[Rfam]
RNA sequence: AGUCUGCGAUGAUGCGGGAGAUUGCGGUGAAAACCGGUAACUUCCGCGGAGUAUGUCCGUUUAUCGGGCGG
Numbered sequence: 001a002g003u004c005u006g007c008g009a010u011g012a013u014g015c016g017g018g019a020g021a022u023u024g025c026g027g028u029g030a031a032a033a034c035c036g037g038u039a040a041c042u043u044c045c046g047c048g049g050a051g052u053a054u055g056u057c058c059g060u061u062u063a064u065c066g067g068g069c070g071g
Base pairs, nucleotide, nucleotide: 014047015046016045018044019043020042025036026035027034028033057071058070059069060068061067
RNA: S10-Clostridia ribosomal protein leader
Organism: Lawsonibacter faecis